[Rfam]
RNA sequence: UCGCCUUCCGGAAAUGGUGUCUUCCAUUUUACAAACCGCUGCAAAGCUAAUGACACCUACAAUUUA
Numbered sequence: 001u002c003g004c005c006u007u008c009c010g011g012a013a014a015u016g017g018u019g020u021c022u023u024c025c026a027u028u029u030u031a032c033a034a035a036c037c038g039c040u041g042c043a044a045a046g047c048u049a050a051u052g053a054c055a056c057c058u059a060c061a062a063u064u065u066a
Stems, first nucleotide, its partner, number of pairs: 010025004016057006038047003